[Rfam]
A member of the RNA family "Small nucleolar RNA SNORD58" from Nothocercus julius, 67 nucleotides long. A search with the family's covariance model found it, with a score of 55 bits. The family's RNA type in Rfam is C/D-box small nucleolar RNA. About the family: snoRNA U58 is found in introns 1, 3 and 6 of the ribosomal protein RPL17 gene in humans. Pairs were carried over by alignment from the consensus structure, which was predicted with PFOLD. The family has 33 seed sequences and 2,484 matches in Rfam 15.1.
RNA sequence: UGGCGGUGGUGACUCUCUUAGGAUGCCUUUGGAAUCAUUAUGAAAUAAAAUCUUCAUUCUGAGUCAU
Numbered sequence: 001u002g003g004c005g006g007u008g009g010u011g012a013c014u015c016u017c018u019u020a021g022g023a024u025g026c027c028u029u030u031g032g033a034a035u036c037a038u039u040a041u042g043a044a045a046u047a048a049a050a051u052c053u054u055c056a057u058u059c060u061g062a063g064u065c066a067u
Base pairs, nucleotide, nucleotide: 001066002065003064004063